CRISPR RNA direct repeat element: a 37-nucleotide sequence from Archaeoglobus fulgidus.

[Rfam]
RNA sequence: AUAAGAAAGGGAGGCUCCUGAAAAUGGAGAUUGAAAG
Numbered sequence: 001a002u003a004a005g006a007a008a009g010g011g012a013g014g015c016u017c018c019u020g021a022a023a024a025u026g027g028a029g030a031u032u033g034a035a036a037g
Stems, first nucleotide, its partner, number of pairs: 015029004
The organism belongs to Archaeoglobus fulgidus, within Archaea. Rfam's curators put it in the seed alignment.